[Rfam]
RNA: Small nucleolar RNA snoR77
Organism: Hevea brasiliensis
RNA sequence: AGGCAGCCUCUUUGCAGAAGAUAUAGUAGCGAAGAAGGUGUUUAACUGCUCGGAUAUUAAUUGCCUUUUGCUCUUCAGACUUGCUGAUUUUUCAUUGAAGCUGGUCUAGUAAGCCUAAGCACAGU
Numbered sequence: 001a002g003g004c005a006g007c008c009u010c011u012u013u014g015c016a017g018a019a020g021a022u023a024u025a026g027u028a029g030c031g032a033a034g035a036a037g038g039u040g041u042u043u044a045a046c047u048g049c050u051c052g053g054a055u056a057u058u059a060a061u062u063g064c065c066u067u068u069u070g071c072u073c074u075u076c077a078g079a080c081u082u083g084c085u086g087a088u089u090u091u092u093c094a095u096u097g098a099a100g101c102u103g104g105u106c107u108a109g110u111a112a113g114c115c116u117a118a119g120c121a122c123a124g125u
Base pairs, nucleotide, nucleotide: 002042003041004040005039007038008037009035010034011033012032013031014030015029017027065119066118067117070114071113072112077107078106079105080104081103083101084100085099